RNA sequence: CGCAAGUUUGAGGGCACAGCAGAAGCGCUCAUGGCAUGGCCUGUCAGAUUCCAACAAAAUCUGCAAAUUCUGAU
Numbered sequence: 001c002g003c004a005a006g007u008u009u010g011a012g013g014g015c016a017c018a019g020c021a022g023a024a025g026c027g028c029u030c031a032u033g034g035c036a037u038g039g040c041c042u043g044u045c046a047g048a049u050u051c052c053a054a055c056a057a058a059a060u061c062u063g064c065a066a067a068u069u070c071u072g073a074u
Stems, first nucleotide, its partner, number of pairs: 012041002015038001018074001020072005025037001027035001045063006
Rfam assigns this 74-nucleotide RNA from Crocodylus porosus to the family "Mammalian CPEB3 ribozyme".
The source organism's lineage runs through Eukaryota, Teleostomi, Sauria, Archelosauria and Crocodylus.